Description: The record is a 114-nucleotide sequence from Danionella cerebrum, which matches "Potassium channel RNA editing signal" in Rfam. The match comes from Rfam's covariance-model search (93 bits). A reference for the family is Bhalla et al. (2004), "Control of human potassium channel inactivation by editing of a small mRNA hairpin", Nat Struct Mol Biol. It is annotated as a cis-regulatory element. NCBI's taxonomy places the organism under Eukaryota, Metazoa, Bilateria, Cypriniphysae, Danionella.
[Rfam]
RNA sequence: CUGGGAUAUGGAGAUAUGUAUCCUCAAACCUGGUCUGGGAUGGUUGUGGGGGCUUUGUGUGCCCUUGCUGGUGUGCUGACGAUAGCCAUGCCUGUUCCGGUGAUCGUGAACAAC
Numbered sequence: 001c002u003g004g005g006a007u008a009u010g011g012a013g014a015u016a017u018g019u020a021u022c023c024u025c026a027a028a029c030c031u032g033g034u035c036u037g038g039g040a041u042g043g044u045u046g047u048g049g050g051g052g053c054u055u056u057g058u059g060u061g062c063c064c065u066u067g068c069u070g071g072u073g074u075g076c077u078g079a080c081g082a083u084a085g086c087c088a089u090g091c092c093u094g095u096u097c098c099g100g101u102g103a104u105c106g107u108g109a110a111c112a113a114c
Base pairs, nucleotide, nucleotide: 002113004111007108008107009106010105011104014101015100018097020095021094037077038076040074049063050062